[Rfam]
RNA sequence: ACCAUCUUUGUCUUGGGGUGAGCUGCUGCUCAAUGAACGUAUAGUGAGAGCAGUACUGCUAAUGCCACAAACAACACAUACGUGCCACUGGUGUGAAUACACUAGAACGGUACAAUUUUUGGAACC
Numbered sequence: 001a002c003c004a005u006c007u008u009u010g011u012c013u014u015g016g017g018g019u020g021a022g023c024u025g026c027u028g029c030u031c032a033a034u035g036a037a038c039g040u041a042u043a044g045u046g047a048g049a050g051c052a053g054u055a056c057u058g059c060u061a062a063u064g065c066c067a068c069a070a071a072c073a074a075c076a077c078a079u080a081c082g083u084g085c086c087a088c089u090g091g092u093g094u095g096a097a098u099a100c101a102c103u104a105g106a107a108c109g110g111u112a113c114a115a116u117u118u119u120u121g122g123a124a125c126c
Stems, first nucleotide, its partner, number of pairs: 006018004020059001022057001025054007037045002082113005089104006
A member of the RNA family "U4atac minor spliceosomal RNA" from Xenopus laevis, 126 nucleotides long.
The organism belongs to Xenopus, within Eukaryota.
Its Rfam clan is "U4 clan".
The family's consensus secondary structure is taken from published work.
The match comes from Rfam's covariance-model search (91 bits).